The record is a 370-nucleotide RNA sequence from Chitinophaga jiangningensis, which matches "Bacterial RNase P class A" in Rfam.
A reference for the family is Frank and Pace (1998), "Ribonuclease P: unity and diversity in a tRNA processing ribozyme", Annu Rev Biochem.

RNA sequence: ACUACAAACCGUGCUAUCGUCUUUCAGACUUGAGCUGAAAGAAGGAAAGUCUGGACAGCGCAGAGCAACGCACCACCUAACGGGUGGGCCUGUUCGCAAGAGCAGGACAGCCAGUGCCACAGAAAAUGACCGCCGGGCAACCGGUAAGGGUGAAAAUGUGGGGUAAGCGCCCACGGUAUAGGCAGGCAACUGUUUAUGCGGGUAAACCUUGCGUGCUGAAAUGCCAUGUAUACGGUCGCUCGAGGGCUGCUCGCCCGAUGACCGAGGGUAGGCAGAUACAGGCGAUGUGCGAGCAUCGUCGUAGAUAAAUGAUAGCAGUUCUCCGGCUUGCCGGAGUUCACAGAAUCCGGCUUACAGGUUUGUAGUUUUU
Numbered sequence: 001a002c003u004a005c006a007a008a009c010c011g012u013g014c015u016a017u018c019g020u021c022u023u024u025c026a027g028a029c030u031u032g033a034g035c036u037g038a039a040a041g042a043a044g045g046a047a048a049g050u051c052u053g054g055a056c057a058g059c060g061c062a063g064a065g066c067a068a069c070g071c072a073c074c075a076c077c078u079a080a081c082g083g084g085u086g087g088g089c090c091u092g093u094u095c096g097c098a099a100g101a102g103c104a105g106g107a108c109a110g111c112c113a114g115u116g117c118c119a120c121a122g123a124a125a126a127u128g129a130c131c132g133c134c135g136g137g138c139a140a141c142c143g144g145u146a147a148g149g150g151u152g153a154a155a156a157u158g159u160g161g162g163g164u165a166a167g168c169g170c171c172c173a174c175g176g177u178a179u180a181g182g183c184a185g186g187c188a189a190c191u192g193u194u195u196a197u198g199c200g201g202g203u204a205a206a207c208c209u210u211g212c213g214u215g216c217u218g219a220a221a222u223g224c225c226a227u228g229u230a231u232a233c234g235g236u237c238g239c240u241c242g243a244g245g246g247c248u249g250c251u252c253g254c255c256c257g258a259u260g261a262c263c264g265a266g267g268g269u270a271g272g273c274a275g276a277u278a279c280a281g282g283c284g285a286u287g288u289g290c291g292a293g294c295a296u297c298g299u300c301g302u303a304g305a306u307a308a309a310u311g312a313u314a315g316c317a318g319u320u321c322u323c324c325g326g327c328u329u330g331c332c333g334g335a336g337u338u339c340a341c342a343g344a345a346u347c348c349g350g351c352u353u354a355c356a357g358g359u360u361u362g363u364a365g366u367u368u369u370u
Base pairs, nucleotide, nucleotide: 001366002365003364004363005362006361007360008359009358010357011355012317013316014315015314016313017312018311020042021041022040023039024038025037026036027035047353048352049351051350052349053348054347055346056218057217058216059215063252064251065250066249068214069213070212071211072210073087074086075085076084077083088108089106090105091104092103093102094101095100109209110208114207115206116203117202118201130149131148132145133144134143135142136141157175158174159173160172161171162170178197179196180195181194182193183192184191185190222274223273224272225271233264234263235262236261237260244256245255246254247253281300282299283298284297285296286295287294288293